[Rfam]
RNA sequence: GCCGCAGAUGCGGCAUACAGGGUCCAGUCGCAUUAAGCCCCGAUUUUUCGGGGUUUUUUGUUAUCAGGAAUCGCAAUACUGGGCUAUAUGCCCUUUUUUU
Dot-bracket structure: ..................................((((((((......))))))))........................((((.....)))).......